[Rfam]
RNA: c-di-GMP-I riboswitch aptamer
RNA sequence: GCAUGAAAAAGGCAAACUUUGAGUAAUCAGAGGACGCAAAGGAAAGGGUCUUGUAACCGUGGACAGUGUUCGUGAACAGUAUCAGCAUAAAUAGCAGAUACUUACACUCAUAACUGACACUAUAGAAAUAAGAUAGCCUUACUGCCGAA
Numbered sequence: 001g002c003a004u005g006a007a008a009a010a011g012g013c014a015a016a017c018u019u020u021g022a023g024u025a026a027u028c029a030g031a032g033g034a035c036g037c038a039a040a041g042g043a044a045a046g047g048g049u050c051u052u053g054u055a056a057c058c059g060u061g062g063a064c065a066g067u068g069u070u071c072g073u074g075a076a077c078a079g080u081a082u083c084a085g086c087a088u089a090a091a092u093a094g095c096a097g098a099u100a101c102u103u104a105c106a107c108u109c110a111u112a113a114c115u116g117a118c119a120c121u122a123u124a125g126a127a128a129u130a131a132g133a134u135a136g137c138c139u140u141a142c143u144g145c146c147g148a149a
Base pairs, nucleotide, nucleotide: 012037013036017032018031019030020029021028022027040143041142043140045139046138047137048134049133050132051131052130053129054128